Rfam assigns this 148-nucleotide sequence from Faecalibacillus faecis to the family "glmS glucosamine-6-phosphate activated ribozyme aptamer".

RNA sequence: UUAAAAAAAUGAGCGCCAGGACUGCUAUGCAGUUGACGAGGACUAGACUUAUCGAAAGAUUCGGCGGAUGGUCUAGAGGUAUGAUACUACCUAAACGAUGGACAAAAACUACAAGUGAUUGUAAAACAAAUUCAUCCGGUAUCCUCUU
Numbered sequence: 001u002u003a004a005a006a007a008a009a010u011g012a013g014c015g016c017c018a019g020g021a022c023u024g025c026u027a028u029g030c031a032g033u034u035g036a037c038g039a040g041g042a043c044u045a046g047a048c049u050u051a052u053c054g055a056a057a058g059a060u061u062c063g064g065c066g067g068a069u070g071g072u073c074u075a076g077a078g079g080u081a082u083g084a085u086a087c088u089a090c091c092u093a094a095a096c097g098a099u100g101g102a103c104a105a106a107a108a109c110u111a112c113a114a115g116u117g118a119u120u121g122u123a124a125a126a127c128a129a130a131u132u133c134a135u136c137c138g139g140u141a142u143c144c145u146c147u148u
Stems, first nucleotide, its partner, number of pairs: 020034006043076005052064004077092005096138002098135003110123005